Shown here is a 437-nucleotide part of an RNA from Plasmodium berghei, a member of the family "Eukaryotic large subunit ribosomal RNA".

RNA sequence: GAAAUAUAGAAUAGGAGAGCGUAUCCGCCGAAUUUAAGCAUAUAAUUAAGCGGAAGAAAAGAAAAUAACAAUGAUUCCUUUAGUAACGGCGAGUGAACAAGGAAAAGCUCAAAAGGAAAAUCCGCAUUGUGGUGAAAAUUACGAUGUGGAAUUGUCUGGUGAGGGUUCAUCAUUUUCUAUUUUUUAUGAUGGGUUGUGAAAUGAGUAGGAAUACUAUCCCUUAGAGGGUGAAAGGCCCGUAGCUUCCCACAAUUGUAGAAAAUGAUGAUUCUCUGUAGAGUCGUGUUCUUUGAGAUUGGAGCACAAAUAUGUGUGAUACAUUUCACAUAAAGCUAAAUAUUUGUAGGAAACCGAUAGUAUACAAGUACCGUGAGGGAAAGAUGAAAUAGUACUCAGGAAUGAGAUUUAAAUAAUACCUGAAAUCGUUAAGAUGGAAC
Numbered sequence: 001g002a003a004a005u006a007u008a009g010a011a012u013a014g015g016a017g018a019g020c021g022u023a024u025c026c027g028c029c030g031a032a033u034u035u036a037a038g039c040a041u042a043u044a045a046u047u048a049a050g051c052g053g054a055a056g057a058a059a060a061g062a063a064a065a066u067a068a069c070a071a072u073g074a075u076u077c078c079u080u081u082a083g084u085a086a087c088g089g090c091g092a093g094u095g096a097a098c099a100a101g102g103a104a105a106a107g108c109u110c111a112a113a114a115g116g117a118a119a120a121u122c123c124g125c126a127u128u129g130u131g132g133u134g135a136a137a138a139u140u141a142c143g144a145u146g147u148g149g150a151a152u153u154g155u156c157u158g159g160u161g162a163g164g165g166u167u168c169a170u171c172a173u174u175u176u177c178u179a180u181u182u183u184u185u186a187u188g189a190u191g192g193g194u195u196g197u198g199a200a201a202u203g204a205g206u207a208g209g210a211a212u213a214c215u216a217u218c219c220c221u222u223a224g225a226g227g228g229u230g231a232a233a234g235g236c237c238c239g240u241a242g243c244u245u246c247c248c249a250c251a252a253u254u255g256u257a258g259a260a261a262a263u264g265a266u267g268a269u270u271c272u273c274u275g276u277a278g279a280g281u282c283g284u285g286u287u288c289u290u291u292g293a294g295a296u297u298g299g300a301g302c303a304c305a306a307a308u309a310u311g312u313g314u315g316a317u318a319c320a321u322u323u324c325a326c327a328u329a330a331a332g333c334u335a336a337a338u339a340u341u342u343g344u345a346g347g348a349a350a351c352c353g354a355u356a357g358u359a360u361a362c363a364a365g366u367a368c369c370g371u372g373a374g375g376g377a378a379a380g381a382u383g384a385a386a387u388a389g390u391a392c393u394c395a396g397g398a399a400u401g402a403g404a405u406u407u408a409a410a411u412a413a414u415a416c417c418u419g420a421a422a423u424c425g426u427u428a429a430g431a432u433g434g435a436a437c
Base pairs, nucleotide, nucleotide: 024055025053026052027051028050035042036041065072066071076103077102078101079100080099086094087093106334107333108332109331114157115156116155118153119152121150122149123148124147125146126145127144128143129142130141131140164274165273171267172266173265174264182258183257185255186254190249191248192247193246196243201217204215205214206213220224227237228236283304284303285302286301287300288299289298311328312327313326314325315324368375369374392403393402394401395400
Dot-bracket structure: .......................(((((......((....)).......)))).).........((....))...(((((.....((.....))....)))))..((((....(((.((.(((((((((((........))))))))))).)).)))......((.....((((.......((.((...((((..(....(..(((......))).)..(...)..((.......)).....)..))))....)).)).....)))).....))........(((((((........)))))))......(((((........)))))..)))).................................((....))................((((....))))..................................